[Rfam]
RNA sequence: UUGCUGUAACGGCUUGAAGGAAUCUCAUCGCUUGCAAAUCUUUACUUUCCAUUUUUUCUACAUUCCUAAUGUGGAAGCCAUUUCUUAGGUGUCCGGUACGAUUCACGUGGUAGUCAUUCAACUCGCGUAGGUAACUCGCGGUCGUUUGUUGGCUCUAAGCAAUGAAUAUGAAACUUGAGGGAAGAAAUUCUGCAGAGGCAUAUUCUCCAUGUGAAGGCGAUUUAUCGGAUUGCAUCUGUAAAGGUCUGGAAAUUGAGGGAUGAGCGUUGAUGGGAUGACUUUUUUU
Dot-bracket structure: ..((.......))..(((((...(((((((..(((..((((((..((((((..(...(((((((...)))))))........(..((((((((((((.((.(((((((((.(.(((..(((.(((((.((....)))))))....))).))).)(...)....((((((....(((....(((....)))....)))..)))))).)))))))))..))....)))))...)))))))..)..)..))))))..)))).))..))).)))))))....)))))...
RNA: Fungal signal recognition particle RNA